[Rfam]
RNA sequence: AAAUGGUUGGACUCUUUUUAAGUUAGAGACAAUUUGGUACAACUUAAAUUGGCUUAACCCUACCGCACUUACCGAACUAGACAAUGGUGCGAUAGGGGUAAAUUCUCCGCAUUCGGUGCG
Numbered sequence: 001a002a003a004u005g006g007u008u009g010g011a012c013u014c015u016u017u018u019u020a021a022g023u024u025a026g027a028g029a030c031a032a033u034u035u036g037g038u039a040c041a042a043c044u045u046a047a048a049u050u051g052g053c054u055u056a057a058c059c060c061u062a063c064c065g066c067a068c069u070u071a072c073c074g075a076a077c078u079a080g081a082c083a084a085u086g087g088u089g090c091g092a093u094a095g096g097g098g099u100a101a102a103u104u105c106u107c108c109g110c111a112u113u114c115g116g117u118g119c120g
Stems, first nucleotide, its partner, number of pairs: 024057001026055003030051008058097005064091006071117006108120003
The family of this 120-nucleotide RNA from Enterovirus betacoxsackie is "Enteroviral 3' UTR element". Rfam links the family to the GO term RNA replication. The literature on the family includes a 1999 paper in Nucleic Acids Res by Wang et al., "Structural requirements of the higher order RNA kissing element in the enteroviral 3'UTR". It is one of the family's seed sequences. Rfam classes the family as a cis-regulatory element. This RNA structure is found in the 3' UTR of various enteroviruses. The overall structure forms the origin of replication (OriR) for the initiation of (-) strand RNA synthesis. Pseudoknots have also been predicted in this structure.